[Rfam]
RNA sequence: CAAGCGCCCCAACGGCUUCCUGACGGGGCGCAGUCAUAUAUACCGGAGCA
Dot-bracket structure: ...(((((((..(([[[.[[))..))))))).............]]]]].
Numbered sequence: 001c002a003a004g005c006g007c008c009c010c011a012a013c014g015g016c017u018u019c020c021u022g023a024c025g026g027g028g029c030g031c032a033g034u035c036a037u038a039u040a041u042a043c044c045g046g047a048g049c050a
Stems, first nucleotide, its partner, number of pairs: 004031007013022002015049003019046002

A member of the RNA family "SAM/SAH riboswitch aptamer" from Litoreibacter ponti, 50 nucleotides long. The organism belongs to Litoreibacter, within Bacteria. A search with the family's covariance model found it, with a score of 52 bits.